[Rfam]
RNA sequence: GUUCCUGAGAUUGGGUGAGACUAUCCACUGAAUUUAAACAUAUAACUAAGUGGAAGAAAAGAAAAUAAAUAUGAUUCCCUUAGUAACGGCGAGUGAACCGGGAUGAGCCCAAAGUGGAAAUCCGUUAUUUUCUAUAACGGACUUGUGGUCUUUAGCGGCGUUGCCAGUGGUAGCGAGUUGCCAAGUUUCUUGGGACAGGACAUCAUAGAGGGUGACAAUCCCGUACCUGCUUCUCAGUCUAUCCACGUGUCGGUUCGCCUGCAUAGAGUCGUGCUUUUUGGGAUUGAAGCGCUAAUAGUGAGGUAGUUUUCUCAUAAGGCUAAAUAUUGGUGUGAGACCGAUAGCGUAGAAGUACCGUGAGGGAAAGAUGAAAAGUACUUUGAAAAAAGUGUUAAAAGUACCUGAAACUGCUGAAAGGGAAC
Dot-bracket structure: .......................((((((.....((....))......))))).).........((....))...((((......((.....)).....))))..((((...(.((.((.(((((((.......))))))).)).)).).....((((((..(((.((((.((.(((..((...(.((((......)))))..(...)..((.......)).......))..)))...))..)))).....))).)))).))........(((((((........))))))).....(((((........)))))..)))).................................((....))...............((((....)))).................................